[Rfam]
RNA sequence: AGGAUGAGCUUCUAGGGUUCCGAUCGCACCGAGAGUGAGAUGACUGGUCCAAGAGAAGCAGCCGAUUUUAAAAGAGUCGGUCACACGGCGGGAAAAAAGCCCGGGAGAG
Numbered sequence: 001a002g003g004a005u006g007a008g009c010u011u012c013u014a015g016g017g018u019u020c021c022g023a024u025c026g027c028a029c030c031g032a033g034a035g036u037g038a039g040a041u042g043a044c045u046g047g048u049c050c051a052a053g054a055g056a057a058g059c060a061g062c063c064g065a066u067u068u069u070a071a072a073a074g075a076g077u078c079g080g081u082c083a084c085a086c087g088g089c090g091g092g093a094a095a096a097a098a099g100c101c102c103g104g105g106a107g108a109g
Base pairs, nucleotide, nucleotide: 008059009058010057011056012055015050016049020047021046022044023041024040025039027037028036061082062080063079064078065077066076067075084104086107090102091101092100